The family of this 399-nucleotide sequence from Candidatus Tokpelaia hoelldobleri is "Bacterial RNase P class A". Gene Ontology terms of the family: ribonuclease P activity, tRNA processing and dimeric ribonuclease P complex. Lineage of the source: Bacteria > Pseudomonadota > Alphaproteobacteria > Hyphomicrobiales > Candidatus Tokpelaia. It scores 334 bits against the family's covariance model. The base pairs follow the family's consensus structure, which is taken from published work.

RNA sequence: UCAGUCGGCCGGGCAGCCGCGCCAGACCAAUGCCGAAAGGCGGCUGGUGAGGAAAGUCCGGGCUCCACGGAAACACGAUGCCGGAUAACGUCCGGCGAGGGUGACCUCAGGGAAAGUGCCACAGAAAGCAAACCGCCUGUGCGUUUGCGCGCAGGCAAGGGUGAAAGGGUGGGGUAAGAGCCCACCGCAUUGCCAGUAAUGGCAAUGGCAUGGUAAACCCCAUCGGGAGCAAGACCGAAUAGGGACAGCGCGUGAAGCUGAAAAGCUUGACAGGCCGGUUUCCAGGCCAGUUGUCCGGGUGGGUUGCAAGAGGCGGGUGGUAACAUCCGUCCCAGAUGAAUGGCUGCCGCGCAGGUUUUUCCUGCCAUACAGAACCCGGCUUACAGGCCGGCUGACACA
Numbered sequence: 001u002c003a004g005u006c007g008g009c010c011g012g013g014c015a016g017c018c019g020c021g022c023c024a025g026a027c028c029a030a031u032g033c034c035g036a037a038a039g040g041c042g043g044c045u046g047g048u049g050a051g052g053a054a055a056g057u058c059c060g061g062g063c064u065c066c067a068c069g070g071a072a073a074c075a076c077g078a079u080g081c082c083g084g085a086u087a088a089c090g091u092c093c094g095g096c097g098a099g100g101g102u103g104a105c106c107u108c109a110g111g112g113a114a115a116g117u118g119c120c121a122c123a124g125a126a127a128g129c130a131a132a133c134c135g136c137c138u139g140u141g142c143g144u145u146u147g148c149g150c151g152c153a154g155g156c157a158a159g160g161g162u163g164a165a166a167g168g169g170u171g172g173g174g175u176a177a178g179a180g181c182c183c184a185c186c187g188c189a190u191u192g193c194c195a196g197u198a199a200u201g202g203c204a205a206u207g208g209c210a211u212g213g214u215a216a217a218c219c220c221c222a223u224c225g226g227g228a229g230c231a232a233g234a235c236c237g238a239a240u241a242g243g244g245a246c247a248g249c250g251c252g253u254g255a256a257g258c259u260g261a262a263a264a265g266c267u268u269g270a271c272a273g274g275c276c277g278g279u280u281u282c283c284a285g286g287c288c289a290g291u292u293g294u295c296c297g298g299g300u301g302g303g304u305u306g307c308a309a310g311a312g313g314c315g316g317g318u319g320g321u322a323a324c325a326u327c328c329g330u331c332c333c334a335g336a337u338g339a340a341u342g343g344c345u346g347c348c349g350c351g352c353a354g355g356u357u358u359u360u361c362c363u364g365c366c367a368u369a370c371a372g373a374a375c376c377c378g379g380c381u382u383a384c385a386g387g388c389c390g391g392c393u394g395a396c397a398c399a
Stems, first nucleotide, its partner, number of pairs: 001395010011384001012348007020049006027042001054382003058379005063229004072281002076225005081095005096110001097108004111220002116218002118214003133160002135156009168186006187209001188207008233305004243296006273288004312331008